[Rfam]
Bacterial RNase P class A: a 340-nucleotide RNA sequence from Hathewaya proteolytica.
RNA sequence: CAAGUAAGCCAGAUAGUCGCUGCCAGGUUAUGCCUGGGAGAGGAAAGUCCGAGCUUCAUAGGGCAGGGUGCUGGGUAACUCCCAGUGGAGGCAACUCUAAGGAAAGUGCAACAGAGAUAUACCGCCAGUUUACUGGUAAGGGUGGAAAGGCGAGGUAAGAGCUCACCAGCGUAUGGGUGAUCAUACGGCUAUGUAAACCCCAUCUGAAGCAAGAUCGAAUAGGGAGACAUAUGAGGCGGCCCGUCUCGUCUUCGGGUGUAUCGCUUGAGCCUAUUGGUAACAAUAGGCCUAGAUAGAUGACUAUCAAAUACAGAACUCGGCUUAUAGACUUACUUAUACC
Numbered sequence: 001c002a003a004g005u006a007a008g009c010c011a012g013a014u015a016g017u018c019g020c021u022g023c024c025a026g027g028u029u030a031u032g033c034c035u036g037g038g039a040g041a042g043g044a045a046a047g048u049c050c051g052a053g054c055u056u057c058a059u060a061g062g063g064c065a066g067g068g069u070g071c072u073g074g075g076u077a078a079c080u081c082c083c084a085g086u087g088g089a090g091g092c093a094a095c096u097c098u099a100a101g102g103a104a105a106g107u108g109c110a111a112c113a114g115a116g117a118u119a120u121a122c123c124g125c126c127a128g129u130u131u132a133c134u135g136g137u138a139a140g141g142g143u144g145g146a147a148a149g150g151c152g153a154g155g156u157a158a159g160a161g162c163u164c165a166c167c168a169g170c171g172u173a174u175g176g177g178u179g180a181u182c183a184u185a186c187g188g189c190u191a192u193g194u195a196a197a198c199c200c201c202a203u204c205u206g207a208a209g210c211a212a213g214a215u216c217g218a219a220u221a222g223g224g225a226g227a228c229a230u231a232u233g234a235g236g237c238g239g240c241c242c243g244u245c246u247c248g249u250c251u252u253c254g255g256g257u258g259u260a261u262c263g264c265u266u267g268a269g270c271c272u273a274u275u276g277g278u279a280a281c282a283a284u285a286g287g288c289c290u291a292g293a294u295a296g297a298u299g300a301c302u303a304u305c306a307a308a309u310a311c312a313g314a315a316c317u318c319g320g321c322u323u324a325u326a327g328a329c330u331u332a333c334u335u336a337u338a339c340c
Base pairs, nucleotide, nucleotide: 002335003334004333005332006331007330008329010327011325012305013304014303015302016301017300018299020040021039023037024036025035026034027033028032045323046322047321049320050319051318052317053316054209055208056207057206061242062241063240064239066205067204068203069202070201071085072084073083074082075081086100087098088097089096090095101200102199106198107197108194109193110192122141123140124137125136126135127134128133149167150166152164153163154162169189170187171186172185173184174183175182176181213262214261215260223253224252225251226250227249228248233247234246235245236244237243269288270287271286272285273284274283275282276281

Taxonomically the source falls in Hathewaya proteolytica (Bacteria, Clostridia, Eubacteriales, Hathewaya).
A search with the family's covariance model found it, with a score of 311 bits.